[Rfam]
ACEA small nucleolar RNA U3: a 207-nucleotide RNA from Cyclospora cayetanensis. Rfam's curators write: Small nucleolar RNAs (snoRNAs) are involved in the processing and modification of rRNA in the nucleolus. There are two main classes of snoRNAs: the box C/D class, and the box H/ACA class. U3 snoRNA is a member of the box C/D class. Indeed, the box C/D element is a subset of the six short sequence elements found in all U3 snoRNAs, namely boxes A, A', B, C, C', and D. The U3 snoRNA secondary structure is characterised by a small 5' domain (with boxes A and A'), and a larger 3' domain (with boxes B, C, C', and D), the two domains being linked by a single-stranded hinge. A search with the family's covariance model found it, with a score of 98 bits. A reference for the family is Zwieb (1997), "The uRNA database", Nucleic Acids Res.

RNA sequence: UCGACUGUACUCGAACGGGAUCACUUCUAUAGGCGAUCCGCACGUUCACCGCUACAUCGACAGACAACACCACAAGUCGCGAUGAUGAGACGUGCGUCCUGCCAGACCUUGAAGGGAGGCCCCUCGCCGCAAGGCGGGGCGGCUUUGAUGAUACAGGCAACCGGGCGAAGGCUUGGUUUCCCCUGGCGUGGACGGUUCUGAGCGACA
Numbered sequence: 001u002c003g004a005c006u007g008u009a010c011u012c013g014a015a016c017g018g019g020a021u022c023a024c025u026u027c028u029a030u031a032g033g034c035g036a037u038c039c040g041c042a043c044g045u046u047c048a049c050c051g052c053u054a055c056a057u058c059g060a061c062a063g064a065c066a067a068c069a070c071c072a073c074a075a076g077u078c079g080c081g082a083u084g085a086u087g088a089g090a091c092g093u094g095c096g097u098c099c100u101g102c103c104a105g106a107c108c109u110u111g112a113a114g115g116g117a118g119g120c121c122c123c124u125c126g127c128c129g130c131a132a133g134g135c136g137g138g139g140c141g142g143c144u145u146u147g148a149u150g151a152u153a154c155a156g157g158c159a160a161c162c163g164g165g166c167g168a169a170g171g172c173u174u175g176g177u178u179u180c181c182c183c184u185g186g187c188g189u190g191g192a193c194g195g196u197u198c199u200g201a202g203c204g205a206c207a
Base pairs, nucleotide, nucleotide: 002040003039006035010032011031017028018027019026020025045069076206077205078204079203080202095194096193097192098191099190100188101187102186103185104184105183110153111152118144119143120142122139159178160177161176162175164173

Its Rfam clan is "U3 clan".